[Rfam]
Rfam assigns this 80-nucleotide RNA sequence from Actinidia chinensis to the family "Small nucleolar RNA R160".
RNA sequence: AGCGAAAUGAUGAAGUUCUUUAGUCCGAAGCUUGGUGUGGAAAACAUAUAAACAAUGGUCUUCAAAGUUCUCUGAUUGCU
Number, nucleotide and partner (000 for none) at each position: 001a080002g079003c078004g077005a076006a000007a000008u000009g000010a000011u000012g000013a000014a000015g000016u000017u000018c000019u000020u000021u000022a000023g000024u000025c000026c000027g000028a000029a000030g000031c000032u000033u000034g000035g000036u000037g000038u000039g000040g000041a000042a000043a000044a000045c000046a000047u000048a000049u000050a000051a000052a000053c000054a000055a000056u000057g000058g000059u000060c000061u000062u000063c000064a000065a000066a000067g000068u000069u000070c000071u000072c000073u000074g000075a000076u005077u004078g003079c002080u001

Rfam describes the family as follows. snoR160 is a C/D box small nucleolar RNA, which acts as a methylation guide for 25S ribosomal RNA in plants. snoR160 has been alternatively named snoZ270 in rice. Rfam 15.1 lists 799 matches to the family in 221 species.